[Rfam]
Nucleotides: 124
Stems, first nucleotide, its partner, number of pairs: 001085002006072002009069006016062001032058008103124001105123006
Number, partner (000 for none) and nucleotide at each position: 001085u002084u003000u004000u005000g006072g007071u008000u009069u010068c011067u012066g013065g014064u015000g016062g017000u018000u019000a020000g021000g022000a023000a024000u025000u026000g027000c028000a029000g030000a031000u032058a033057a034056a035055u036054c037053u038052u039051u040000u041000g042000c043000c044000u045000u046000u047000u048000a049000c050000u051039a052038a053037a054036g055035a056034u057033u058032u059000c060000c061000g062016u063000g064014g065013c066012c067011a068010g069009g070000u071007g072006u073000c074000a075000a076000u077000u078000u079000u080000u081000u082000u083000u084002a085001a086000c087000c088000c089000u090000u091000g092000g093000c094000a095000g096000u097000c098000a099000u100000a101000a102000u103124u104000g105123a106122a107121a108120a109119u110118u111000a112000a113000c114000a115000a116000u117000g118110g119109a120108u121107u122106u123105u124103g